A member of the RNA family "MIR529 microRNA precursor family" from Eragrostis curvula, 135 nucleotides long. It scores 91 bits against the family's covariance model. For this family Rfam cites "A diverse set of microRNAs and microRNA-like small RNAs in developing rice grains" (Zhu et al., Genome Res, 2008). Taxonomically the source falls in Eragrostis (Eukaryota, Euphyllophyta, Spermatophyta, commelinids).

RNA sequence: UCACCAAGGCUAAAGGGAGAAGAGAGAGAGUACAGCUUUCGCUUUGUGAAGAUUAUGGUAUAGUUGCGACGACUGUGAAGCUUUGAUCUUCGCGAAGGCUGUACCCUCUCUCUUCUUCUCUUAGCAUCCUGGUGC
Numbered sequence: 001u002c003a004c005c006a007a008g009g010c011u012a013a014a015g016g017g018a019g020a021a022g023a024g025a026g027a028g029a030g031u032a033c034a035g036c037u038u039u040c041g042c043u044u045u046g047u048g049a050a051g052a053u054u055a056u057g058g059u060a061u062a063g064u065u066g067c068g069a070c071g072a073c074u075g076u077g078a079a080g081c082u083u084u085g086a087u088c089u090u091c092g093c094g095a096a097g098g099c100u101g102u103a104c105c106c107u108c109u110c111u112c113u114u115c116u117u118c119u120c121u122u123a124g125c126a127u128c129c130u131g132g133u134g135c
Stems, first nucleotide, its partner, number of pairs: 005131002009125001012122002015119014030104013